[Rfam]
RNA sequence: UUGCUCACAUAAUCCCUCUAACCGAGAUCACGGGGGUUACAUCUCUCAUAUCCACCAGUGAAGGGAUUGGUGGAAAUAUUAUAUCGC
Numbered sequence: 001u002u003g004c005u006c007a008c009a010u011a012a013u014c015c016c017u018c019u020a021a022c023c024g025a026g027a028u029c030a031c032g033g034g035g036g037u038u039a040c041a042u043c044u045c046u047c048a049u050a051u052c053c054a055c056c057a058g059u060g061a062a063g064g065g066a067u068u069g070g071u072g073g074a075a076a077u078a079u080u081a082u083a084u085c086g087c
Stems, first nucleotide, its partner, number of pairs: 013035004024045005052073007
Description:
Shown here is an 87-nucleotide RNA sequence, a member of the family "PhotoRC-II RNA". It is one of the family's seed sequences.